[Rfam]
RNA sequence: GGGGGCUGGGGAAGGGCUGCUGGGGGCUGGAGCCAGACGGCCCGGCCUCGUCCCUGCCAGUCUGACCCGUGCCCGAGAUCAGCUCCAGGGGGGCUCCGUGCUGGGGCUCCCCCGUGCAGUAACAGGUGUGAGCAUUCAUGAAGCAUUUUGAUGGUCAUGUAUGAUACUGCAAACAACA
Numbered sequence: 001g002g003g004g005g006c007u008g009g010g011g012a013a014g015g016g017c018u019g020c021u022g023g024g025g026g027c028u029g030g031a032g033c034c035a036g037a038c039g040g041c042c043c044g045g046c047c048u049c050g051u052c053c054c055u056g057c058c059a060g061u062c063u064g065a066c067c068c069g070u071g072c073c074c075g076a077g078a079u080c081a082g083c084u085c086c087a088g089g090g091g092g093g094c095u096c097c098g099u100g101c102u103g104g105g106g107c108u109c110c111c112c113c114g115u116g117c118a119g120u121a122a123c124a125g126g127u128g129u130g131a132g133c134a135u136u137c138a139u140g141a142a143g144c145a146u147u148u149u150g151a152u153g154g155u156c157a158u159g160u161a162u163g164a165u166a167c168u169g170c171a172a173a174c175a176a177c178a
Stems, first nucleotide, its partner, number of pairs: 003074004008068003015062004019057002022054003025047005032041003085105002089101001091099001115171007123163002129157003133153004140147002
RNA: Small Cajal body specific RNA 16
Organism: Serilophus lunatus